About this RNA
Shown here is a 112-nucleotide RNA from Homo sapiens, a member of the family "Mitochondrial DNA control region secondary structure A". By type it is an antisense RNA. The match comes from Rfam's covariance-model search (43 bits). For this family Rfam cites "Evidence for variable selective pressures at a large secondary structure of the human mitochondrial DNA control region" (Pereira et al., Mol Biol Evol, 2008).

RNA sequence: AUUCUUUUUGGCACAUAUUUUAACUAAUAUGUCAGUAUUGACUGCCAACACUAAUAUAUUAGUACUCCUAUGUACUUUGUGCAUUACUGUUAAUCCCCAUGAAUGAUAUAUG
Numbered sequence: 001a002u003u004c005u006u007u008u009u010g011g012c013a014c015a016u017a018u019u020u021u022a023a024c025u026a027a028u029a030u031g032u033c034a035g036u037a038u039u040g041a042c043u044g045c046c047a048a049c050a051c052u053a054a055u056a057u058a059u060u061a062g063u064a065c066u067c068c069u070a071u072g073u074a075c076u077u078u079g080u081g082c083a084u085u086a087c088u089g090u091u092a093a094u095c096c097c098c099a100u101g102a103a104u105g106a107u108a109u110a111u112g
Base pairs, nucleotide, nucleotide: 005103006102007101009099010098011097013090014089015088020034022032025029035065036064039061040060041059070084071083072082073081074080